[Rfam]
Nucleotides: 192
Stems, first nucleotide, its partner, number of pairs: 007027003011023004049068006070086006114145004119140002125136004148185006155177006
Number, partner (000 for none) and nucleotide at each position: 001000a002000u003000c004000g005000c006000u007027u008026c009025u010000c011023g012022g013021c014020c015000u016000a017000u018000c019000u020014g021013g022012c023011u024000a025009a026008g027007a028000u029000c030000a031000a032000a033000a034000u035000g036000u037000a038000g039000c040000g041000c042000c043000u044000g045000u046000u047000c048000u049068u050067a051066u052065c053064a054063g055000c056000u057000u058000a059000a060000u061000a062000u063054c064053u065052g066051a067050u068049a069000c070086g071085g072084g073083u074082g075081c076000u077000a078000u079000g080000u081075g082074c083073a084072c085071c086070c087000g088000g089000g090000a091000u092000g093000u094000u095000a096000u097000a098000g099000c100000a101000a102000u103000u104000u105000u106000u107000g108000c109000a110000c111000g112000c113000u114145g115144g116143c117142a118000c119140c120139g121000u122000g123000a124000a125136g126135g127134g128133g129000c130000u131000c132000g133128c134127c135126c136125c137000u138000c139120c140119g141000u142117u143116g144115c145114c146000a147000c148185g149184g150183g151182u152181u153180g154000u155177c156176c157175c158174g159173g160172c161000a162000u163000u164000g165000c166000a167000c168000u169000g170000c171000c172160g173159c174158c175157g176156g177155g178000c179000u180153c181152a182151g183150c184149c185148c186000c187000g188000u189000u190000c191000c192000c